RNA sequence: GAUUAACCGUUAAUGUUAGCGGCUAUUGUCAGUAAUGAUAAUAGAAAACCCCUUGAAUUCAGGGGAAGUCUCAUUGAGAUAAUCCUGAGCGAAACCUAUGCUAAUUAGCAGAAUGUUCAAACUAUGUCAGAGUUAAAAUCUGGUAACUGUUAUGAACAAGGGACGUGCAAAGACCAUCCAGAAAUGGAGUAGAGUCAAGCGACUCGAAGCGGGGGGAAUCCUUCUUACAUAAGCUAAGGAUUGUGAUAUGGUCUGUUCUAUUCGGCGACGGGUAG
Numbered sequence: 001g002a003u004u005a006a007c008c009g010u011u012a013a014u015g016u017u018a019g020c021g022g023c024u025a026u027u028g029u030c031a032g033u034a035a036u037g038a039u040a041a042u043a044g045a046a047a048a049c050c051c052c053u054u055g056a057a058u059u060c061a062g063g064g065g066a067a068g069u070c071u072c073a074u075u076g077a078g079a080u081a082a083u084c085c086u087g088a089g090c091g092a093a094a095c096c097u098a099u100g101c102u103a104a105u106u107a108g109c110a111g112a113a114u115g116u117u118c119a120a121a122c123u124a125u126g127u128c129a130g131a132g133u134u135a136a137a138a139u140c141u142g143g144u145a146a147c148u149g150u151u152a153u154g155a156a157c158a159a160g161g162g163a164c165g166u167g168c169a170a171a172g173a174c175c176a177u178c179c180a181g182a183a184a185u186g187g188a189g190u191a192g193a194g195u196c197a198a199g200c201g202a203c204u205c206g207a208a209g210c211g212g213g214g215g216g217a218a219u220c221c222u223u224c225u226u227a228c229a230u231a232a233g234c235u236a237a238g239g240a241u242u243g244u245g246a247u248a249u250g251g252u253c254u255g256u257u258c259u260a261u262u263c264g265g266c267g268a269c270g271g272g273u274a275g
Stems, first nucleotide, its partner, number of pairs: 005024001007022006028039003049216004054211002059088006069079004089166002095160001097158001170254001172253005219240005260273005
Source information: A member of the RNA family "Group I catalytic intron" from Limnospira maxima, 275 nucleotides long. About the family: Group I catalytic introns are large self-splicing ribozymes. They catalyse their own excision from mRNA, tRNA and rRNA precursors in a wide range of organisms. The core secondary structure consists of 9 paired regions (P1-P9). Taxonomically the source falls in Limnospira maxima (Bacteria, Cyanobacteriota, Cyanophyceae, Sirenicapillariaceae).